[Rfam]
RNA sequence: CGUUAUAAAGGUGCAUCAUUUGAUCAAUGCUGGCUCACACCCUAUAACAAACAACUGAAUACGAACAGCGAAUCGAUGAGCAGAGGAGCUGCAAUCUGGAAUGGAGAAUAUCUCCAUGUGGACUGCGGUACGGAUUUUUAUUGCCUUUUCGCUGAUUU
Numbered sequence: 001c002g003u004u005a006u007a008a009a010g011g012u013g014c015a016u017c018a019u020u021u022g023a024u025c026a027a028u029g030c031u032g033g034c035u036c037a038c039a040c041c042c043u044a045u046a047a048c049a050a051a052c053a054a055c056u057g058a059a060u061a062c063g064a065a066c067a068g069c070g071a072a073u074c075g076a077u078g079a080g081c082a083g084a085g086g087a088g089c090u091g092c093a094a095u096c097u098g099g100a101a102u103g104g105a106g107a108a109u110a111u112c113u114c115c116a117u118g119u120g121g122a123c124u125g126c127g128g129u130a131c132g133g134a135u136u137u138u139u140a141u142u143g144c145c146u147u148u149u150c151g152c153u154g155a156u157u158u
Stems, first nucleotide, its partner, number of pairs: 002048004007043001010041004014032002017029002033081005066154007088129005101117005